[Rfam]
RNA: SAM riboswitch aptamer (S box leader)
Organism: Clostridium grantii
Nucleotides: 112
Stems, first nucleotide, its partner, number of pairs: 001112008013041001015040003021031003025087004042079004047075002050070007083104001088101004
Number, partner (000 for none) and nucleotide at each position: 001112u002111u003110c004109u005108u006107a007106u008105c009000a010000a011000g012000a013041g014000u015040g016039g017038u018000g019000g020000a021031g022030g023029g024000a025087c026086g027085a028084g029023c030022c031021c032000g033000u034000u035000g036000a037000a038017a039016c040015c041013c042079a043078g044077c045076a046000a047075c048074a049000g050070c051069u052068a053067a054066u055065u056064a057000u058000c059000a060000u061000a062000u063000a064056u065055a066054a067053u068052u069051a070050g071000a072000a073000u074048u075047g076045u077044g078043c079042u080000a081000a082000a083104u084028c085027u086026u087025g088101c089100a090099g091098g092000a093000u094000a095000a096000a097000a098091c099090c100089u101088g102000a103000g104083g105008g106007a107006u108005a109004a110003g111002g112001a